[Rfam]
RNA sequence: GAAGACCCUGUUGAGCUUUACUCUAGUCUGGCUUUGUGAAACGACUUAGAAGGUGUAGUAUAAGUGGGAGUACAAAGAAGGGAUCGAAAACUAAUUCGAUCUUUAUGUUUUUGUACACAAAUGAAAUACCACUACUUUUACAGUUGUUUUACUUAUCUAUUAAUAGGGAAAUAUAUUAUGCUUUAAUUCUUUGUGAAAAAGGCAUUCUGAUAUUAUUUGAAUUUUUAAGAAACUUGUUUCUUAUAUUUCUCCCAUUUCUAUGGAGACAUAGCCAGGUGGGGAGUUUGACUGGGGCGGUACAUCUGUUAAAAAAUAACGCAGAUGUCCAAAGACAAGCUCAAUGAGAACAGAAAUCUCGUGUAGACUAAAAGGGGAAAAGCUUGUUUGAUUUCUAUUUUCAGAAAGAAUAGAAAACGUGAAAGCGUGGCCUAUCGAUCCUUUAUUUUUGCAAAAUGUAUUAAUAACAUUCUGACUGUGCAUAUAAAGGUGUCUGAAAAGUUACCACAGGGAUAACUGGCUUGUGGCUGCCAAGCGCUCUUAGCGACGUAGCUUUUUGAUCCUUCGAUGU
Numbered sequence: 001g002a003a004g005a006c007c008c009u010g011u012u013g014a015g016c017u018u019u020a021c022u023c024u025a026g027u028c029u030g031g032c033u034u035u036g037u038g039a040a041a042c043g044a045c046u047u048a049g050a051a052g053g054u055g056u057a058g059u060a061u062a063a064g065u066g067g068g069a070g071u072a073c074a075a076a077g078a079a080g081g082g083a084u085c086g087a088a089a090a091c092u093a094a095u096u097c098g099a100u101c102u103u104u105a106u107g108u109u110u111u112u113g114u115a116c117a118c119a120a121a122u123g124a125a126a127u128a129c130c131a132c133u134a135c136u137u138u139u140a141c142a143g144u145u146g147u148u149u150u151a152c153u154u155a156u157c158u159a160u161u162a163a164u165a166g167g168g169a170a171a172u173a174u175a176u177u178a179u180g181c182u183u184u185a186a187u188u189c190u191u192u193g194u195g196a197a198a199a200a201g202g203c204a205u206u207c208u209g210a211u212a213u214u215a216u217u218u219g220a221a222u223u224u225u226u227a228a229g230a231a232a233c234u235u236g237u238u239u240c241u242u243a244u245a246u247u248u249c250u251c252c253c254a255u256u257u258c259u260a261u262g263g264a265g266a267c268a269u270a271g272c273c274a275g276g277u278g279g280g281g282a283g284u285u286u287g288a289c290u291g292g293g294g295c296g297g298u299a300c301a302u303c304u305g306u307u308a309a310a311a312a313a314u315a316a317c318g319c320a321g322a323u324g325u326c327c328a329a330a331g332a333c334a335a336g337c338u339c340a341a342u343g344a345g346a347a348c349a350g351a352a353a354u355c356u357c358g359u360g361u362a363g364a365c366u367a368a369a370a371g372g373g374g375a376a377a378a379g380c381u382u383g384u385u386u387g388a389u390u391u392c393u394a395u396u397u398u399c400a401g402a403a404a405g406a407a408u409a410g411a412a413a414a415c416g417u418g419a420a421a422g423c424g425u426g427g428c429c430u431a432u433c434g435a436u437c438c439u440u441u442a443u444u445u446u447u448g449c450a451a452a453a454u455g456u457a458u459u460a461a462u463a464a465c466a467u468u469c470u471g472a473c474u475g476u477g478c479a480u481a482u483a484a485a486g487g488u489g490u491c492u493g494a495a496a497a498g499u500u501a502c503c504a505c506a507g508g509g510a511u512a513a514c515u516g517g518c519u520u521g522u523g524g525c526u527g528c529c530a531a532g533c534g535c536u537c538u539u540a541g542c543g544a545c546g547u548a549g550c551u552u553u554u555u556g557a558u559c560c561u562u563c564g565a566u567g568u
Stems, first nucleotide, its partner, number of pairs: 007508004012504002014500005020284004027276007036152010047140006063133005070116009156264005166253004174212005229247002232244001287300001288298003301323006326427002332384006338364002341359006365374002389413009415424003438486006447479003517558001519556001521555001523551006532542002
RNA: Eukaryotic large subunit ribosomal RNA, nucleotides 2803 to 3370
Organism: Plasmodium falciparum